[Rfam]
RNA sequence: AAAUAACACAAUAUAUUUCCCCAUAUAUUCCCGGUAAUACGGACUGGGAGUCUCUACAGAGUAACCUUAAAUUACUCUACUAUGGACGGUGCUUCUGACAUA
Numbered sequence: 001a002a003a004u005a006a007c008a009c010a011a012u013a014u015a016u017u018u019c020c021c022c023a024u025a026u027a028u029u030c031c032c033g034g035u036a037a038u039a040c041g042g043a044c045u046g047g048g049a050g051u052c053u054c055u056a057c058a059g060a061g062u063a064a065c066c067u068u069a070a071a072u073u074a075c076u077c078u079a080c081u082a083u084g085g086a087c088g089g090u091g092c093u094u095c096u097g098a099c100a101u102a
Stems, first nucleotide, its partner, number of pairs: 018088001021085005029049007058078007
RNA: Purine riboswitch aptamer
Organism: Lentibacillus amyloliquefaciens